[Rfam]
RNA sequence: CGCAGGGCACCGCCUAAUCGGGAUGCACGCAAGAGCACCCGUACCGGGAACCCGAUUUUUAUUGGGGUGAAUCCCGCCGAAUCGCGAAAGCGACGACGCGGGUAGGGCUGAUCUUCCCAGCCCGAACCCGUCAGCUAACUCGGUCGGCGGAUGAACGGAAGAAAC
Numbered sequence: 001c002g003c004a005g006g007g008c009a010c011c012g013c014c015u016a017a018u019c020g021g022g023a024u025g026c027a028c029g030c031a032a033g034a035g036c037a038c039c040c041g042u043a044c045c046g047g048g049a050a051c052c053c054g055a056u057u058u059u060u061a062u063u064g065g066g067g068u069g070a071a072u073c074c075c076g077c078c079g080a081a082u083c084g085c086g087a088a089a090g091c092g093a094c095g096a097c098g099c100g101g102g103u104a105g106g107g108c109u110g111a112u113c114u115u116c117c118c119a120g121c122c123c124g125a126a127c128c129c130g131u132c133a134g135c136u137a138a139c140u141c142g143g144u145c146g147g148c149g150g151a152u153g154a155a156c157g158g159a160a161g162a163a164a165c
Stems, first nucleotide, its partner, number of pairs: 011149004019041004043144006053064002065129003073102004105123004
RNA: c-di-AMP riboswitch aptamer (ydaO/yuaA leader)